[Rfam]
RNA: mir-969 microRNA precursor family
Organism: Drosophila busckii
RNA sequence: CUGUCCUACGGGUGAGUUCAACUAAUCAAGUUUUAAGCUUGAAAUUUGUUUUCUAUUGAGAUUCUAAAAACUUGACACGUUGAGCUCCUUUGUGCGAUAG
Numbered sequence: 001c002u003g004u005c006c007u008a009c010g011g012g013u014g015a016g017u018u019c020a021a022c023u024a025a026u027c028a029a030g031u032u033u034u035a036a037g038c039u040u041g042a043a044a045u046u047u048g049u050u051u052u053c054u055a056u057u058g059a060g061a062u063u064c065u066a067a068a069a070a071c072u073u074g075a076c077a078c079g080u081u082g083a084g085c086u087c088c089u090u091u092g093u094g095c096g097a098u099a100g
Base pairs, nucleotide, nucleotide: 001100002099003098004097005096007094008093009092010091012089014087015086016085017084018083019082021080022079027074028073029072030071031070032069033068034067